[Rfam]
The record is a 34-nucleotide sequence, which matches "DUF805b RNA" in Rfam. The base pairs follow the family's consensus structure, which is taken from published work. Clan: DUF805 clan.
RNA sequence: CAGGAGUAACCGAAAAUCCAUAAAAGAGUAGGAA
Number, nucleotide and partner (000 for none) at each position: 001c000002a000003g019004g018005a017006g000007u000008a000009a000010c032011c031012g000013a000014a000015a000016a000017u005018c004019c003020a000021u000022a000023a000024a000025a000026g000027a000028g000029u000030a000031g011032g010033a000034a000